[Rfam]
RNA sequence: GCGGGCCUUGCCUACUAUUCCAUGGUGGGAAAUUGGGCUAAGGUUCUG
Numbered sequence: 001g002c003g004g005g006c007c008u009u010g011c012c013u014a015c016u017a018u019u020c021c022a023u024g025g026u027g028g029g030a031a032a033u034u035g036g037g038c039u040a041a042g043g044u045u046c047u048g
Base pairs, nucleotide, nucleotide: 006043007042008041010038011037012036013035014034018031019030020029021028